[Rfam]
Annotation: This 89-nucleotide RNA belongs to the Rfam family "Small nucleolar RNA snoR8a". For this family Rfam cites "Multiple snoRNA gene clusters from Arabidopsis" (Brown et al., RNA, 2001).
RNA sequence: GAUUUUGCGAUGAUAAGAAUAUAAUUCCUCGUUCUGAAUGCCGAUUGGCAUGAUAGACUCUGUUUUAACACCCAUAGAAUCUGAGCAAA
Numbered sequence: 001g002a003u004u005u006u007g008c009g010a011u012g013a014u015a016a017g018a019a020u021a022u023a024a025u026u027c028c029u030c031g032u033u034c035u036g037a038a039u040g041c042c043g044a045u046u047g048g049c050a051u052g053a054u055a056g057a058c059u060c061u062g063u064u065u066u067a068a069c070a071c072c073c074a075u076a077g078a079a080u081c082u083g084a085g086c087a088a089a
Stems, first nucleotide, its partner, number of pairs: 003089002006087002
The base pairs follow the family's consensus structure, which was predicted with WAR.
The match comes from Rfam's covariance-model search (78 bits).